[Rfam]
RNA sequence: AAAAAUCUUCGGGGCAGGGUGAAAUUCCCUACCGGCGGUAAAGCCCGCGAACUAUGAAAAUAGCUGAUUUGGUGAAAUUCCAAAGCCGACAGUAGAGUCUGGAUGAGAGAAGAGAGUU
Numbered sequence: 001a002a003a004a005a006u007c008u009u010c011g012g013g014g015c016a017g018g019g020u021g022a023a024a025u026u027c028c029c030u031a032c033c034g035g036c037g038g039u040a041a042a043g044c045c046c047g048c049g050a051a052c053u054a055u056g057a058a059a060a061u062a063g064c065u066g067a068u069u070u071g072g073u074g075a076a077a078u079u080c081c082a083a084a085g086c087c088g089a090c091a092g093u094a095g096a097g098u099c100u101g102g103a104u105g106a107g108a109g110a111a112g113a114g115a116g117u118u
Stems, first nucleotide, its partner, number of pairs: 006113005017029003031098002033088002035048004043086002052063002068084005090101003